[Rfam]
Rfam assigns this 211-nucleotide RNA from Nonomuraea longispora to the family "Actinobacteria sRNA Ms_IGR-5". Rfam classes the family as a small RNA.

RNA sequence: ACGCGGAAAGGAGGUGGUCCAAACAAUGGUGAUUCAUAGUUGGACUAGCGAGGUGGUUGUCCGCUAGAGCCGCGGACUCGUUGUCUCGUGGCGUUCGCGAAUACGAGGCAACCACCGGGGCCCCUGGCAGCCGGAGGGCGGGAUGUCAUCCCGGCCUUGGUCCAUCCGGCCCGUCUGCUCGGCAGGCGGAGCGUCGCCCGGGGCCCUUCUU
Number, nucleotide and partner (000 for none) at each position: 001a000002c000003g000004c000005g000006g000007a000008a000009a000010g000011g000012a000013g061014g060015u059016g058017g057018u056019c000020c000021a000022a000023a000024c000025a000026a000027u000028g000029g000030u000031g000032a000033u000034u000035c000036a000037u000038a000039g000040u000041u000042g000043g000044a000045c000046u000047a000048g000049c000050g000051a000052g000053g000054u000055g000056g018057u017058u016059g015060u014061c013062c099063g098064c097065u000066a095067g094068a000069g092070c091071c090072g089073c000074g086075g085076a084077c000078u000079c000080g000081u000082u000083g000084u076085c075086u074087c000088g000089u072090g071091g070092c069093g000094u067095u066096c000097g064098c063099g062100a000101a000102u000103a000104c000105g000106a000107g000108g000109c000110a000111a000112c000113c000114a000115c000116c000117g207118g206119g205120g204121c203122c202123c201124c200125u000126g198127g197128c196129a000130g000131c189132c188133g187134g000135a000136g000137g000138g000139c000140g000141g000142g000143a000144u000145g000146u000147c000148a000149u000150c000151c000152c000153g000154g000155c000156c000157u000158u000159g000160g000161u000162c000163c000164a000165u000166c000167c000168g000169g000170c000171c000172c000173g000174u000175c000176u000177g000178c000179u000180c000181g000182g000183c000184a000185g000186g000187c133188g132189g131190a000191g000192c000193g000194u000195c000196g128197c127198c126199c000200g124201g123202g122203g121204c120205c119206c118207u117208u000209c000210u000211u000